[Rfam]
Rfam assigns this 92-nucleotide RNA from Thiobacillus sp. to the family "c-di-GMP-I riboswitch aptamer". Rfam describes the family as follows. GEMM was predicted in a large-scale screen for bacterial structured RNA regulatory elements. The match comes from Rfam's covariance-model search (50 bits).

Nucleotides: 092
Stems, first nucleotide, its partner, number of pairs: 012037002017032002020029003041085003045082003048077006
Number, partner (000 for none) and nucleotide at each position: 001000c002000a003000c004000c005000g006000a007000a008000c009000a010000g011000g012037g013036c014000a015000a016000a017032c018031c019000c020029g021028c022027c023000g024000c025000g026000a027022g028021g029020c030000a031018g032017g033000g034000a035000c036013g037012c038000a039000a040000a041085g042084u043083u044000a045082c046081c047080g048077g049076u050075c051074u052073c053072g054000c055000c056000c057000g058000c059000c060000a061000c062000a063000u064000c065000c066000g067000g068000c069000u070000g071000a072053c073052g074051a075050g076049a077048u078000a079000g080047c081046g082045g083043g084042g085041c086000c087000g088000c089000c090000g091000g092000c